[Rfam]
RNA: Eukaryotic large subunit ribosomal RNA, nucleotides 803 to 1137
Organism: Gasterosteus aculeatus
RNA sequence: GAGUCUAACAUAUGUGCAAGUUAUUGGGAUGUAAACCUAAUAGCGUAAUUAACUUGACUAAUAAUGGGAUUAGUUUUUUAGCUAUUUAUAGCUAAUUAACACAAUCCCGGGGCGUUCUAUAUAGUUAUGUAUAAUGUAUAUUUAUAUUAUUUAUGCCUCUAACUGGAACGUACCUUGAGCAUAUAUGCUGUGACCCGAAAGAUGGUGAACUAUACUUGAUCAGGUUGAAGUCAGGGGAAACCCUGAUGGAAGACCGAAACAGUUCUGACGUGCAAAUCGAUUGUCAGAAUUGAGUAUAGGGGCGAAAGACCAAUCGAACCAUCUAGUAGCUGGUU
Numbered sequence: 001g002a003g004u005c006u007a008a009c010a011u012a013u014g015u016g017c018a019a020g021u022u023a024u025u026g027g028g029a030u031g032u033a034a035a036c037c038u039a040a041u042a043g044c045g046u047a048a049u050u051a052a053c054u055u056g057a058c059u060a061a062u063a064a065u066g067g068g069a070u071u072a073g074u075u076u077u078u079u080a081g082c083u084a085u086u087u088a089u090a091g092c093u094a095a096u097u098a099a100c101a102c103a104a105u106c107c108c109g110g111g112g113c114g115u116u117c118u119a120u121a122u123a124g125u126u127a128u129g130u131a132u133a134a135u136g137u138a139u140a141u142u143u144a145u146a147u148u149a150u151u152u153a154u155g156c157c158u159c160u161a162a163c164u165g166g167a168a169c170g171u172a173c174c175u176u177g178a179g180c181a182u183a184u185a186u187g188c189u190g191u192g193a194c195c196c197g198a199a200a201g202a203u204g205g206u207g208a209a210c211u212a213u214a215c216u217u218g219a220u221c222a223g224g225u226u227g228a229a230g231u232c233a234g235g236g237g238a239a240a241c242c243c244u245g246a247u248g249g250a251a252g253a254c255c256g257a258a259a260c261a262g263u264u265c266u267g268a269c270g271u272g273c274a275a276a277u278c279g280a281u282u283g284u285c286a287g288a289a290u291u292g293a294g295u296a297u298a299g300g301g302g303c304g305a306a307a308g309a310c311c312a313a314u315c316g317a318a319c320c321a322u323c324u325a326g327u328a329g330c331u332g333g334u335u
Stems, first nucleotide, its partner, number of pairs: 006190002009187009020044003025039004030034001048055001066108005073100003110174002112171003116167003122161002194333002197330001201323006210299011221287001223255004230247007259284004264280002267278002301311002